[Rfam]
The family of this 61-nucleotide RNA from Pseudomonas fluorescens is "gabT RNA". By type it is a cis-regulatory element.
RNA sequence: UGCGGCCGGGAACGCCGUGGCAGUCGAUCAUCGCAUGCUGCCACCGCCGAUUCCUCCCGCU
Number, nucleotide and partner (000 for none) at each position: 001u000002g060003c059004g058005g057006c000007c000008g000009g000010g000011a000012a000013c000014g047015c046016c000017g044018u043019g042020g041021c040022a039023g038024u037025c033026g032027a000028u000029c000030a000031u000032c026033g025034c000035a000036u000037g024038c023039u022040g021041c020042c019043a018044c017045c000046g015047c014048c000049g000050a000051u000052u000053c000054c000055u000056c000057c005058c004059g003060c002061u000